Nucleotides: 135
Base pairs, nucleotide, nucleotide: 001059002058003057004056007050008049010047012045013044014043015042016041017040019037020036021035022034071127073125074124075123076122077121078120082117083116084114085113086112087111089109091107092106093105094104
Number, partner (000 for none) and nucleotide at each position: 001059g002058c003057c004056c005000u006000g007050u008049g009000g010047u011000u012045g013044c014043u015042g016041g017040a018000c019037a020036c021035u022034g023000g024000u025000g026000u027000u028000u029000g030000c031000g032000u033000g034022c035021a036020g037019u038000g039000c040017u041016u042015c043014a044013g045012u046000u047010g048000g049008u050007a051000g052000a053000a054000a055000c056004g057003g058002g059001c060000c061000a062000a063000a064000a065000g066000u067000a068000a069000u070000g071127c072000u073125g074124u075123g076122a077121u078120u079000u080000u081000u082117g083116c084114a085113u086112g087111g088000a089109g090000u091107c092106u093105g094104u095000g096000g097000u098000a099000c100000a101000u102000g103000a104094g105093c106092a107091g108000u109089u110000u111087c112086c113085a114084u115000a116083g117082c118000c119000c120078g121077g122076u123075c124074a125073c126000a127071g128000u129000a130000a131000c132000a133000g134000a135000c
The family of this 135-nucleotide RNA sequence from Crotophaga sulcirostris is "Small nucleolar RNA SNORA84". Rfam classes the family as an H/ACA-box small nucleolar RNA. Its family is annotated with nucleolus and RNA processing in the Gene Ontology. It scores 112 bits against the family's covariance model. Lineage of the source: Eukaryota > Eumetazoa > Vertebrata > Neognathae > Crotophaga. Pairs were carried over by alignment from the consensus structure, which was predicted with WAR.